[Rfam]
RNA sequence: GUACAGAUGAUGAGCCUUGUAGUAUGACAAAAACAGUGAUACUGUAAACGCUUUCUGAUGUG
Numbered sequence: 001g002u003a004c005a006g007a008u009g010a011u012g013a014g015c016c017u018u019g020u021a022g023u024a025u026g027a028c029a030a031a032a033a034c035a036g037u038g039a040u041a042c043u044g045u046a047a048a049c050g051c052u053u054u055c056u057g058a059u060g061u062g
Stems, first nucleotide, its partner, number of pairs: 002062004012054001013052003020044006
Dot-bracket structure: .((((......((((....((((((.............)))))).....))).)....))))

Small nucleolar RNA Z39: a 62-nucleotide RNA sequence from Geococcyx californianus.
The family has 5 seed sequences and 935 matches in Rfam 15.1.
The family's consensus secondary structure was predicted with PFOLD.
A reference for the family is Chen et al. (2003), "The high diversity of snoRNAs in plants: identification and comparative study of 120 snoRNA genes from Oryza sativa", Nucleic Acids Res.